The record is a 77-nucleotide RNA from Kingdonia uniflora, which matches "Small nucleolar RNA snoR53Y" in Rfam.
[Rfam]
RNA sequence: GCUUCCAAUGAUGUCGAUAUAACCAUGCUAAUUUUAAUAUUCAUUGAUGUAUAAGUUUUUUUUAUUCAGAGGAAACA
Numbered sequence: 001g002c003u004u005c006c007a008a009u010g011a012u013g014u015c016g017a018u019a020u021a022a023c024c025a026u027g028c029u030a031a032u033u034u035u036a037a038u039a040u041u042c043a044u045u046g047a048u049g050u051a052u053a054a055g056u057u058u059u060u061u062u063u064a065u066u067c068a069g070a071g072g073a074a075a076c077a
Base pairs, nucleotide, nucleotide: 001076003074004073005072

NCBI's taxonomy places the organism under Eukaryota, Streptophyta, Tracheophyta, Magnoliopsida, Kingdonia. It scores 48 bits against the family's covariance model. On this family, see Brown et al., RNA 2001: "Multiple snoRNA gene clusters from Arabidopsis". Gene Ontology terms of the family: nucleolus and RNA processing. Its Rfam clan is "snoR53 clan". The base pairs follow the family's consensus structure, which was predicted with WAR.